[Rfam]
RNA: azaaromatic riboswitch aptamer (yjdF RNA)
RNA sequence: AAAAAGCAGUGUAAAAACACGAACCGGUUGGUAGUCCGGUUGCAUGGAAGUUGGUUUCCAUGUCAGUAACCUUCCCCUUUCUCCCCGGGGAUGUCCAUCACUGCUGAAUAUUUU
Number, nucleotide and partner (000 for none) at each position: 001a000002a000003a000004a000005a105006g104007c103008a102009g101010u100011g099012u000013a000014a000015a000016a000017a000018c000019a000020c000021g000022a041023a040024c039025c038026g037027g036028u000029u000030g000031g000032u000033a000034g000035u000036c027037c026038g025039g024040u023041u022042g063043c062044a061045u060046g059047g058048a057049a056050g055051u000052u000053g000054g000055u050056u049057u048058c047059c046060a045061u044062g043063u042064c000065a000066g000067u000068a000069a000070c000071c000072u000073u091074c090075c089076c088077c000078u000079u000080u000081c000082u000083c000084c000085c000086c000087g000088g076089g075090g074091a073092u000093g000094u000095c000096c000097a000098u000099c011100a010101c009102u008103g007104c006105u005106g000107a000108a000109u000110a000111u000112u000113u000114u000